RNA sequence: UCGAGGCUCCAUCUACGAAUGGAUAAAAUUUCGUUUUUCGUCUAGGGUUUACGAGUUAUUGAAAGUAAAGGGGCAGUGCUGAUUUCUUGUUCUGUCAAGAAAUUGGUUAUUGCUCCUUU
Numbered sequence: 001u002c003g004a005g006g007c008u009c010c011a012u013c014u015a016c017g018a019a020u021g022g023a024u025a026a027a028a029u030u031u032c033g034u035u036u037u038u039c040g041u042c043u044a045g046g047g048u049u050u051a052c053g054a055g056u057u058a059u060u061g062a063a064a065g066u067a068a069a070g071g072g073g074c075a076g077u078g079c080u081g082a083u084u085u086c087u088u089g090u091u092c093u094g095u096c097a098a099g100a101a102a103u104u105g106g107u108u109a110u111u112g113c114u115c116c117u118u119u
Stems, first nucleotide, its partner, number of pairs: 008023005067119012080105003084101005